Shown here is a 90-nucleotide sequence from Acer saccharum, a member of the family "Small nucleolar RNA SNORD24". The organism belongs to Acer, within Eukaryota. The family's RNA type in Rfam is C/D-box small nucleolar RNA.
[Rfam]
RNA sequence: GGCCAGAGAUGUUAGAAAAUAUUUGCUACUCUUGAUCAUGGAAAUAUUUCCAUAUAUGAUGAUUCUUUAGCCACCAAGAUCUAUGAGGCC
Numbered sequence: 001g002g003c004c005a006g007a008g009a010u011g012u013u014a015g016a017a018a019a020u021a022u023u024u025g026c027u028a029c030u031c032u033u034g035a036u037c038a039u040g041g042a043a044a045u046a047u048u049u050c051c052a053u054a055u056a057u058g059a060u061g062a063u064u065c066u067u068u069a070g071c072c073a074c075c076a077a078g079a080u081c082u083a084u085g086a087g088g089c090c
Base pairs, nucleotide, nucleotide: 001090002089003088004087